The record is a 304-nucleotide sequence from Salix viminalis, which matches "Plant signal recognition particle RNA" in Rfam. It is annotated as a non-coding RNA gene.
RNA sequence: GCCGAGCCCGGUAGCGUGGGCCUGUAAUCCAAGUGGAGGCGUGAGGGUCAAGGGACGUUGAUUCUGUUCAUAUGACCGGGUCUCGAUUGGCUAAUUUCUGGCUCGCCCGUUCCAAGCCGAGAGCUGAGCCGUGUGAUCCAGACGAAGGUACGGAUCACACUGCUCCUAAAGCUAGGGGCAGUGCGUGAGGCUGGUUUCACAGAGCAGCGAUAACCUUACACUCUUGGCAGUGGAAGGAUAACGGGCCGGUGUCAACUGGACUCAUAUGGGUCAGAUGUUCGGAUCUAACUGAACCUUCACUUUU
Numbered sequence: 001g002c003c004g005a006g007c008c009c010g011g012u013a014g015c016g017u018g019g020g021c022c023u024g025u026a027a028u029c030c031a032a033g034u035g036g037a038g039g040c041g042u043g044a045g046g047g048u049c050a051a052g053g054g055a056c057g058u059u060g061a062u063u064c065u066g067u068u069c070a071u072a073u074g075a076c077c078g079g080g081u082c083u084c085g086a087u088u089g090g091c092u093a094a095u096u097u098c099u100g101g102c103u104c105g106c107c108c109g110u111u112c113c114a115a116g117c118c119g120a121g122a123g124c125u126g127a128g129c130c131g132u133g134u135g136a137u138c139c140a141g142a143c144g145a146a147g148g149u150a151c152g153g154a155u156c157a158c159a160c161u162g163c164u165c166c167u168a169a170a171g172c173u174a175g176g177g178g179c180a181g182u183g184c185g186u187g188a189g190g191c192u193g194g195u196u197u198c199a200c201a202g203a204g205c206a207g208c209g210a211u212a213a214c215c216u217u218a219c220a221c222u223c224u225u226g227g228c229a230g231u232g233g234a235a236g237g238a239u240a241a242c243g244g245g246c247c248g249g250u251g252u253c254a255a256c257u258g259g260a261c262u263c264a265u266a267u268g269g270g271u272c273a274g275a276u277g278u279u280c281g282g283a284u285c286u287a288a289c290u291g292a293a294c295c296u297u298c299a300c301u302u303u304u
Stems, first nucleotide, its partner, number of pairs: 001040003004023001006021005028037003043304006050297004056291002058288003061284004066279001069277003073273005078263006085256001087255004092251002098249008107237002110235005116228008126165004131160009142149002166171001173218005184209003191202003

Taxonomically the source falls in Salix (Eukaryota, Tracheophyta, Euphyllophyta, Salicaceae).